[Rfam]
RNA sequence: CGUCCGGGCAACCGUGCCCGUACGCCCGUUCCGGUACCUGAUACGGCCGGAUUCGG
Numbered sequence: 001c002g003u004c005c006g007g008g009c010a011a012c013c014g015u016g017c018c019c020g021u022a023c024g025c026c027c028g029u030u031c032c033g034g035u036a037c038c039u040g041a042u043a044c045g046g047c048c049g050g051a052u053u054c055g056g
Base pairs, nucleotide, nucleotide: 001024002023003022005020006019007018008017009016026056027055028054030051031050032049033048034047035046
A member of the RNA family "L17-Actino-Proteobacteria ribosomal protein leader" from Kitasatospora azatica, 56 nucleotides long. It is annotated as a cis-regulatory leader. The base pairs follow the family's consensus structure, which is taken from published work. A reference for the family is Eckert and Weinberg (2020), "Discovery of 20 novel ribosomal leader candidates in bacteria and archaea", BMC Microbiol.